[Rfam]
RNA sequence: GUAAUGAAGAAGAAGUUAUCCGCUUCUCACCUGUGAGGUCGCGUCACCGACACAGGUUGAUAUGUUGAAAUCAGUGUGCUUACGGCACAUUUAUGAGCGGAUACUUCCUGUAUCCGCUUUUAUAUUUUUAG
Numbered sequence: 001g002u003a004a005u006g007a008a009g010a011a012g013a014a015g016u017u018a019u020c021c022g023c024u025u026c027u028c029a030c031c032u033g034u035g036a037g038g039u040c041g042c043g044u045c046a047c048c049g050a051c052a053c054a055g056g057u058u059g060a061u062a063u064g065u066u067g068a069a070a071u072c073a074g075u076g077u078g079c080u081u082a083c084g085g086c087a088c089a090u091u092u093a094u095g096a097g098c099g100g101a102u103a104c105u106u107c108c109u110g111u112a113u114c115c116g117c118u119u120u121u122a123u124a125u126u127u128u129u130a131g
Base pairs, nucleotide, nucleotide: 011027012026013025014024015023016022029057030056031055038051039050040049041048096118097117098116099115100114101113102112103111104110
About this RNA:
The family of this 131-nucleotide RNA sequence from Firmicutes bacterium CAG:238 is "Ribosomal protein L20 leader". The literature on the family includes a 1994 paper in Prog Nucleic Acid Res Mol Biol by Zengel and Lindahl, "Diverse mechanisms for regulating ribosomal protein synthesis in Escherichia coli". The organism belongs to Bacillota, within Bacteria.